[Rfam]
This 252-nucleotide RNA sequence from Penicillium chermesinum belongs to the Rfam family "Small nucleolar RNA snR191". Lineage of the source: Eukaryota > Fungi > saccharomyceta > Pezizomycotina > Penicillium. The family's RNA type in Rfam is H/ACA-box small nucleolar RNA. Rfam links the family to the GO terms nucleolus and RNA processing. On this family, see Badis et al., RNA 2003: "A snoRNA that guides the two most conserved pseudouridine modifications within rRNA confers a growth advantage in yeast".
RNA sequence: UUCCAUUGCUAAGUCAAGGCUUCUCCCUGCGACUCUUGUCGUAUUUUUUUUUCCCUCAAUGGGAGUCUGUCUGUUACAGCUUUGGUAGAUUGAUCCUGUCCCGCACCGAAUUUCUUUCUGAAGCUAGGUUGAUAGUCCUUCGUCUUGAAGGGCUAUCGCAAGGGACAGAUGUGCUUUGUUUAAGAGUUGAGGUCUGCUUCUGCCUUUUCUGGCGGCCUCAUAGCAGAACUCUUAGUAACAUCCCACACAUUC
Numbered sequence: 001u002u003c004c005a006u007u008g009c010u011a012a013g014u015c016a017a018g019g020c021u022u023c024u025c026c027c028u029g030c031g032a033c034u035c036u037u038g039u040c041g042u043a044u045u046u047u048u049u050u051u052u053c054c055c056u057c058a059a060u061g062g063g064a065g066u067c068u069g070u071c072u073g074u075u076a077c078a079g080c081u082u083u084g085g086u087a088g089a090u091u092g093a094u095c096c097u098g099u100c101c102c103g104c105a106c107c108g109a110a111u112u113u114c115u116u117u118c119u120g121a122a123g124c125u126a127g128g129u130u131g132a133u134a135g136u137c138c139u140u141c142g143u144c145u146u147g148a149a150g151g152g153c154u155a156u157c158g159c160a161a162g163g164g165a166c167a168g169a170u171g172u173g174c175u176u177u178g179u180u181u182a183a184g185a186g187u188u189g190a191g192g193u194c195u196g197c198u199u200c201u202g203c204c205u206u207u208u209c210u211g212g213c214g215g216c217c218u219c220a221u222a223g224c225a226g227a228a229c230u231c232u233u234a235g236u237a238a239c240a241u242c243c244c245a246c247a248c249a250u251u252c
Stems, first nucleotide, its partner, number of pairs: 003085003017072004023065004029042005096168006105129003109125001111123004131157012171246003177240003189231003195225004200215005